The record is a 108-nucleotide sequence, which matches "6S-Flavo RNA" in Rfam. The sequence is in the family's curated seed alignment.

[Rfam]
RNA sequence: ACUCAACGAGCUUUUAAUUCAGAGAGGUGAGUUUCUUUUGCAAAAGCAAGCUGCCUUGAGCAGAUCCUUGACCAUAGGUGUAGCCUCAAACUUGAUUUUUAGGAGUUU
Numbered sequence: 001a002c003u004c005a006a007c008g009a010g011c012u013u014u015u016a017a018u019u020c021a022g023a024g025a026g027g028u029g030a031g032u033u034u035c036u037u038u039u040g041c042a043a044a045a046g047c048a049a050g051c052u053g054c055c056u057u058g059a060g061c062a063g064a065u066c067c068u069u070g071a072c073c074a075u076a077g078g079u080g081u082a083g084c085c086u087c088a089a090a091c092u093u094g095a096u097u098u099u100u101a102g103g104a105g106u107u108u
Stems, first nucleotide, its partner, number of pairs: 024087005035078003039074001044069003051063004